[Rfam]
The record is a 123-nucleotide sequence from Proteus mirabilis, which matches "Phenylalanine leader peptide" in Rfam. The family's consensus secondary structure was predicted with CMfinder. A reference for the family is Gurvich et al. (2010), "Two groups of phenylalanine biosynthetic operon leader peptides genes: a high level of apparently incidental frameshifting in decoding Escherichia coli pheL", Nucleic Acids Res. The source organism's lineage runs through Bacteria, Pseudomonadota, Gammaproteobacteria, Morganellaceae and Proteus mirabilis.
RNA sequence: AAUGUUAAAUAUCGCUUUUUUCCGCUUCUUUUUUUACUUUAGCGCCUAAUUUUGGGGGCUUUUGCGCGUAAGAAAAGAAACGAAAAGUAGCGCCGGAGCCUCCAUUUUGGAGGCUUUUUUGUU
Numbered sequence: 001a002a003u004g005u006u007a008a009a010u011a012u013c014g015c016u017u018u019u020u021u022c023c024g025c026u027u028c029u030u031u032u033u034u035u036a037c038u039u040u041a042g043c044g045c046c047u048a049a050u051u052u053u054g055g056g057g058g059c060u061u062u063u064g065c066g067c068g069u070a071a072g073a074a075a076a077g078a079a080a081c082g083a084a085a086a087g088u089a090g091c092g093c094c095g096g097a098g099c100c101u102c103c104a105u106u107u108u109g110g111a112g113g114c115u116u117u118u119u120u121g122u123u
Stems, first nucleotide, its partner, number of pairs: 014091003019086003023082002026079007034071004040054003055065001057063002095117010